[Rfam]
RNA sequence: UCUUCAUUUCGCACACUCUCUCACCGGUCAGUGUGGCGGGAAAGCGUGUGAAAGGAAGAGA
Numbered sequence: 001u002c003u004u005c006a007u008u009u010c011g012c013a014c015a016c017u018c019u020c021u022c023a024c025c026g027g028u029c030a031g032u033g034u035g036g037c038g039g040g041a042a043a044g045c046g047u048g049u050g051a052a053a054g055g056a057a058g059a060g061a
Base pairs, nucleotide, nucleotide: 001059002058003057004056005055007053010050012048013047014046016044017043019041020040021039022038